[Rfam]
RNA: mir-1199 microRNA precursor family
Organism: Pteropus alecto
RNA sequence: UGCGCCGGAGCAGGGGCCUGAGUCCAGGCCGCGCGGGCCGCGAACUUGUCGAGCUGCGCGUGCGGCCAGUGCUCAGCCUGCCCAGUUCCGGCCCCGCGCU
Numbered sequence: 001u002g003c004g005c006c007g008g009a010g011c012a013g014g015g016g017c018c019u020g021a022g023u024c025c026a027g028g029c030c031g032c033g034c035g036g037g038c039c040g041c042g043a044a045c046u047u048g049u050c051g052a053g054c055u056g057c058g059c060g061u062g063c064g065g066c067c068a069g070u071g072c073u074c075a076g077c078c079u080g081c082c083c084a085g086u087u088c089c090g091g092c093c094c095c096g097c098g099c100u
Base pairs, nucleotide, nucleotide: 002099003098004097005096007095008094010092011091013089014088015087016086017085019075020074021073022072023071024069027067028066029065030064031063032062033061034060037057038056040054045053046052047051